[Rfam]
RNA sequence: AUUAAACAUUUACAAUAAAUUCGUAUAACCUCACGAAUUAGGGUGAGGGUUUCUACGGGAAGCCUUAACUUCCUAACUACGAAUAUAGGAUCGUCCAAC
Numbered sequence: 001a002u003u004a005a006a007c008a009u010u011u012a013c014a015a016u017a018a019a020u021u022c023g024u025a026u027a028a029c030c031u032c033a034c035g036a037a038u039u040a041g042g043g044u045g046a047g048g049g050u051u052u053c054u055a056c057g058g059g060a061a062g063c064c065u066u067a068a069c070u071u072c073c074u075a076a077c078u079a080c081g082a083a084u085a086u087a088g089g090a091u092c093g094u095c096c097a098a099c
Stems, first nucleotide, its partner, number of pairs: 019084007029048006057074006

Source information:
The family of this 99-nucleotide RNA sequence from Cohnella luojiensis is "Purine riboswitch aptamer". A search with the family's covariance model found it, with a score of 60 bits. Pairs were carried over by alignment from the consensus structure, which is taken from published work. Rfam links the family to the GO term purine nucleobase biosynthetic process.